[Rfam]
Nucleotides: 129
Stems, first nucleotide, its partner, number of pairs: 006018004021060003026055003030051003038046002082116006088107005
Number, partner (000 for none) and nucleotide at each position: 001000a002000c003000u004000a005000u006018c007017c008016u009015u010000g011000u012000c013000u014000u015009g016008g017007g018006g019000u020000g021060g022059c023058g024000c025000g026055g027054c028053u029000a030051c031050u032049c033000a034000a035000u036000g037000a038046g039045c040000g041000u042000c043000u044000a045039g046038c047000g048000a049032g050031a051030g052000c053028a054027g055026c056000u057000c058023u059022g060021c061000u062000a063000a064000c065000a066000c067000c068000a069000u070000a071000c072000c073000a074000a075000c076000a077000c078000a079000u080000u081000c082116g083115c084114a085113u086112c087111a088107c089106c090105u091104g092103g093000a094000c095000a096000a097000u098000c099000u100000u101000g102000c103092c104091c105090a106089g107088g108000c109000a110000a111087u112086g113085g114084u115083g116082c117000a118000a119000u120000u121000u122000u123000u124000g125000g126000a127000a128000c129000c